[Rfam]
RNA: MIR4371 microRNA precursor family
RNA sequence: CUGUUAAAUGAUGAUGCGACAGAUAAAGUGUCACGUCAUUAUGCCUAAUCAUUGACACAUCAUUGUCAUAUCAUUGAAGGUGAUGACGUGACAAUGAGAUGUCCAUGACAAGACUUGAUGAAGUGACAUUCUGUCUACCACGUCAUCACUUAACAGAA
Numbered sequence: 001c002u003g004u005u006a007a008a009u010g011a012u013g014a015u016g017c018g019a020c021a022g023a024u025a026a027a028g029u030g031u032c033a034c035g036u037c038a039u040u041a042u043g044c045c046u047a048a049u050c051a052u053u054g055a056c057a058c059a060u061c062a063u064u065g066u067c068a069u070a071u072c073a074u075u076g077a078a079g080g081u082g083a084u085g086a087c088g089u090g091a092c093a094a095u096g097a098g099a100u101g102u103c104c105a106u107g108a109c110a111a112g113a114c115u116u117g118a119u120g121a122a123g124u125g126a127c128a129u130u131c132u133g134u135c136u137a138c139c140a141c142g143u144c145a146u147c148a149c150u151u152a153a154c155a156g157a158a
Stems, first nucleotide, its partner, number of pairs: 001156007009148008018139001021136005027130008036121006043114001045112002049108004054103004071086004